Shown here is a 133-nucleotide sequence from Desulfosporosinus fructosivorans, a member of the family "Molybdenum/Tungsten riboswitch aptamer (Moco RNA motif)". Rfam links the family to the GO terms tungstate binding, molybdenum ion binding and regulation of gene expression. Taxonomically the source falls in Desulfosporosinus (Bacteria, Clostridia, Eubacteriales, Desulfitobacteriaceae). It scores 73 bits against the family's covariance model.
[Rfam]
RNA sequence: UGAAUAAUAAAUCUCCGAGCCAGAAUGACCUAAAGAGGAAAUCUAUGGUCACUGGCCAGGGCUUUAAGCCCUCAGGGUGUUCCCGGAAACGGGUAUGCCUUCACGUUCGAAAAGGAGUGGAUUCACUUGUCAG
Numbered sequence: 001u002g003a004a005u006a007a008u009a010a011a012u013c014u015c016c017g018a019g020c021c022a023g024a025a026u027g028a029c030c031u032a033a034a035g036a037g038g039a040a041a042u043c044u045a046u047g048g049u050c051a052c053u054g055g056c057c058a059g060g061g062c063u064u065u066a067a068g069c070c071c072u073c074a075g076g077g078u079g080u081u082c083c084c085g086g087a088a089a090c091g092g093g094u095a096u097g098c099c100u101u102c103a104c105g106u107u108c109g110a111a112a113a114g115g116a117g118u119g120g121a122u123u124c125a126c127u128u129g130u131c132a133g
Base pairs, nucleotide, nucleotide: 003127013117014116015115016114019056020055021054022053023052028049029048030047034044035043036042058072059071060070061069062068075100076099077098078097079096080095082093083092084091085090101110102109

The base pairs follow the family's consensus structure, which is taken from published work.